Record summary: The family of this 90-nucleotide RNA from Desulfofundulus salinus is "c-di-GMP-I riboswitch aptamer". Rfam describes the family as follows. GEMM was predicted in a large-scale screen for bacterial structured RNA regulatory elements. The base pairs follow the family's consensus structure, which is taken from published work. Lineage of the source: Bacteria > Bacillota > Clostridia > Eubacteriales > Desulfofundulus.
[Rfam]
Nucleotides: 090
Stems, first nucleotide, its partner, number of pairs: 012037002017032006041084004046080003049075003056069004
Number, partner (000 for none) and nucleotide at each position: 001000u002000u003000a004000c005000g006000g007000g008000u009000u010000g011000g012037g013036c014000a015000a016000a017032c018031c019030g020029g021028g022027c023000g024000a025000a026000a027022g028021c029020c030019c031018g032017g033000g034000a035000c036013g037012c038000u039000a040000a041084a042083g043082c044081u045000a046080u047079g048078g049075g050074u051073c052000u053000a054000a055000g056069g057068u058067c059066c060000u061000u062000u063000u064000c065000a066059g067058g068057a069056c070000u071000a072000u073051g074050a075049u076000c077000g078048c079047c080046a081044g082043g083042c084041u085000g086000c087000a088000a089000c090000g